[Rfam]
RNA sequence: AUGAGGUGAUGUGAAAAUUCAUGGUCUGUCAAUCCACUGACAUCUAUCCAUGAUGUUGCUCGUGAUAUCCCGAAAUGUUCUGAUCAU
Numbered sequence: 001a002u003g004a005g006g007u008g009a010u011g012u013g014a015a016a017a018u019u020c021a022u023g024g025u026c027u028g029u030c031a032a033u034c035c036a037c038u039g040a041c042a043u044c045u046a047u048c049c050a051u052g053a054u055g056u057u058g059c060u061c062g063u064g065a066u067a068u069c070c071c072g073a074a075a076u077g078u079u080c081u082g083a084u085c086a087u
Base pairs, nucleotide, nucleotide: 001087002086003085004084
RNA: Small nucleolar RNA snoR14
Organism: Musa acuminata